[Rfam]
RNA: Molybdenum/Tungsten riboswitch aptamer (Moco RNA motif)
RNA sequence: AAAUAAAUAUGUCUCCGAGCCUGGUGACCUAAGCCUAAAGUAUGGUUGCCCGGCCGUUAGGGUGCAUGGGGAAACCGGUGUGCCUCCCAUUGCGGAAAGGAGAAUGCGAACUUUAUCU
Number, nucleotide and partner (000 for none) at each position: 001a000002a000003a112004u000005a000006a000007a000008u000009a000010u000011g000012u103013c102014u101015c100016c099017g000018a000019g054020c053021c052022u000023g050024g049025u048026g047027a046028c045029c044030u000031a000032a000033g041034c040035c000036u000037a000038a000039a000040g034041u033042a000043u000044g029045g028046u027047u026048g025049c024050c023051c000052g021053g020054c019055c000056g000057u000058u000059a000060g085061g084062g083063u082064g081065c080066a079067u078068g000069g076070g075071g000072a000073a000074a000075c070076c069077g000078g067079u066080g065081u064082g063083c062084c061085u060086c095087c094088c000089a000090u000091u000092g000093c000094g087095g086096a000097a000098a000099g016100g015101a014102g013103a012104a000105u000106g000107c000108g000109a000110a000111c000112u003113u000114u000115a000116u000117c000118u000